[Rfam]
RNA sequence: GCGGUUGCCAGGCGGGGCCUCUCUACUAGUGCUGUGCAGAGGCUUUCACUGAGGCUGCUGUGAGACUGUAGAGUUUCCCCAUAGGCCGCAGAGCUGG
Numbered sequence: 001g002c003g004g005u006u007g008c009c010a011g012g013c014g015g016g017g018c019c020u021c022u023c024u025a026c027u028a029g030u031g032c033u034g035u036g037c038a039g040a041g042g043c044u045u046u047c048a049c050u051g052a053g054g055c056u057g058c059u060g061u062g063a064g065a066c067u068g069u070a071g072a073g074u075u076u077c078c079c080c081a082u083a084g085g086c087c088g089c090a091g092a093g094c095u096g097g
Base pairs, nucleotide, nucleotide: 002096003095004094005093006092007086008085009084010082014080015079016078017077021073022072023071024070025069026068028067029066032064033063036061037060038059039058041056042055043054044053045052046051
Background:
The family of this 97-nucleotide sequence from Equus caballus is "mir-9058 microRNA precursor family". The source organism's lineage runs through Eukaryota, Metazoa, Tetrapoda, Amniota and Equus. The base pairs follow the family's consensus structure, which was predicted with RNAalifold.